The family of this 183-nucleotide RNA sequence from Paenibacillus protaetiae is "6S / SsrS RNA".
E. coli 6S RNA was the first non coding RNA to be sequenced, but its function was unknown until recently.
The source organism's lineage runs through Bacteria, Bacillati, Bacillota, Caryophanales and Paenibacillus.
It is annotated as a non-coding RNA gene.
The base pairs follow the family's consensus structure, which is taken from published work.

RNA sequence: UACAUCCUGCGAUGUUCGUUUCGGCUCUUCGUUGUUUUGAACCAAUGGCUGUUUCACGGGAGUUCAAUAUUGAAAUGCAGCUGAUAUGCCCUCGAACGGGGACUUCAAAACCAUUUCUGCGGACACCCACCUGCGAGAGCGGGUUCAGAAACAUGUGAGUCGGACGGCAUAGGCGGGUUUCUU
Numbered sequence: 001u002a003c004a005u006c007c008u009g010c011g012a013u014g015u016u017c018g019u020u021u022c023g024g025c026u027c028u029u030c031g032u033u034g035u036u037u038u039g040a041a042c043c044a045a046u047g048g049c050u051g052u053u054u055c056a057c058g059g060g061a062g063u064u065c066a067a068u069a070u071u072g073a074a075a076u077g078c079a080g081c082u083g084a085u086a087u088g089c090c091c092u093c094g095a096a097c098g099g100g101g102a103c104u105u106c107a108a109a110a111c112c113a114u115u116u117c118u119g120c121g122g123a124c125a126c127c128c129a130c131c132u133g134c135g136a137g138a139g140c141g142g143g144u145u146c147a148g149a150a151a152c153a154u155g156u157g158a159g160u161c162g163g164a165c166g167g168c169a170u171a172g173g174c175g176g177g178u179u180u181c182u183u
Base pairs, nucleotide, nucleotide: 004179006177007176008175009174010173012170013169014168015167017166018165019164034152035151036150037149038147039146040145041144042143043142058128059127060126062124063123064122065121069118072117073116074115075114076113077112084105089101090100091099